[Rfam]
RNA sequence: AAACAUAACCCAUAAAAUGCUAGCUGUACCAGGAACCACCUCCUUAGCCUGUGUAAUCUCCCUUACACGGGCUUAUUU
Numbered sequence: 001a002a003a004c005a006u007a008a009c010c011c012a013u014a015a016a017a018u019g020c021u022a023g024c025u026g027u028a029c030c031a032g033g034a035a036c037c038a039c040c041u042c043c044u045u046a047g048c049c050u051g052u053g054u055a056a057u058c059u060c061c062c063u064u065a066c067a068c069g070g071g072c073u074u075a076u077u078u
Stems, first nucleotide, its partner, number of pairs: 031044004046073011
RNA: CyaR/Rye RNA